Plastid-rps18 3UTR RNA: a 57-nucleotide RNA sequence from Lupinus albus. A search with the family's covariance model found it, with a score of 66 bits. A reference for the family is Richter et al. (2023), "Retrograde signaling in plants: A critical review focusing on the GUN pathway and beyond", Plant Commun. It is annotated as a cis-regulatory element. Lineage of the source: Eukaryota > Tracheophyta > Mesangiospermae > Papilionoideae > Lupinus. Pairs were carried over by alignment from the consensus structure, which was predicted with LocARNA. From the family's description: Plastid rps18 is a non-coding RNA (ncRNA) present in plastids.
RNA sequence: UGCAACUAUUUUACGAUUAAGAAACAAUUGCUUCUUCUACAAAUUAUAUAUUAAUCU
Number, nucleotide and partner (000 for none) at each position: 001u000002g000003c000004a000005a000006c000007u000008a000009u000010u000011u000012u000013a000014c000015g000016a000017u000018u000019a036020a035021g034022a033023a032024a000025c030026a000027a000028u000029u000030g025031c000032u023033u022034c021035u020036u019037c000038u000039a000040c000041a000042a000043a000044u000045u000046a000047u000048a000049u000050a000051u000052u000053a000054a000055u000056c000057u000